Shown here is a 67-nucleotide RNA from Gouania willdenowi, a member of the family "Small nucleolar RNA SNORD58". A search with the family's covariance model found it, with a score of 60 bits. Rfam describes the family as follows. snoRNA U58 is found in introns 1, 3 and 6 of the ribosomal protein RPL17 gene in humans.

RNA sequence: CCGCCAUGAUGACCACUUAGGACACCUUUGGAUCAAACCAUGAAAAUAACACGUUAAUCUGAGCGGU
Number, nucleotide and partner (000 for none) at each position: 001c066002c065003g064004c063005c000006a000007u000008g000009a000010u000011g000012a000013c000014c000015a000016c000017u000018u000019a000020g000021g000022a000023c000024a000025c000026c000027u000028u000029u000030g000031g000032a000033u000034c000035a000036a000037a000038c000039c000040a000041u000042g000043a000044a000045a000046a000047u000048a000049a000050c000051a000052c000053g000054u000055u000056a000057a000058u000059c000060u000061g000062a000063g004064c003065g002066g001067u000
Rfam classes the family as a C/D-box small nucleolar RNA.
Clan: SNORD58 clan.